The record is an 81-nucleotide RNA sequence from Raphanus sativus, which matches "small nucleolar RNA snoR117" in Rfam.
On this family, see Chen and Wu, Nucleic Acids Res 2009: "Mining small RNA sequencing data: a new approach to identify small nucleolar RNAs in Arabidopsis".
The family's RNA type in Rfam is C/D-box small nucleolar RNA.
Gene Ontology terms of the family: RNA processing and nucleolus.
The source organism's lineage runs through Eukaryota, Streptophyta, malvids, Brassicaceae and Raphanus.
Pairs were carried over by alignment from the consensus structure, which was predicted with RNAalifold.
RNA sequence: GGUCUGUGAUGUUUGAGAUUGUCCGUACCAUCUGAGAGUUUUAUCUCGUUGAUGAGUUGUUUCCUCUAGUUUCUGAGGCUU
Dot-bracket structure: ((((........................................................................)))).